About this RNA:
The record is a 95-nucleotide RNA sequence from Streptomycetaceae bacterium MP113-05, which matches "che1 RNA" in Rfam. It is annotated as a small RNA. It is one of the family's seed sequences. The source organism's lineage runs through Bacteria, Actinomycetota, Actinomycetes, Kitasatosporales and Streptomycetaceae.
[Rfam]
RNA sequence: CGGGCAGGGGGGUCUCUGUCAAGACGGCAGGGCCUGUCCGGUGGUGCAGGCCGCGCGAAAGCGUGGCCGGUGGUGUCGCUCGGGGGUGAUCGCCG
Dot-bracket structure: ((((((((.....(((((((.....)))))))))))))))........((((((((....))))))))...........................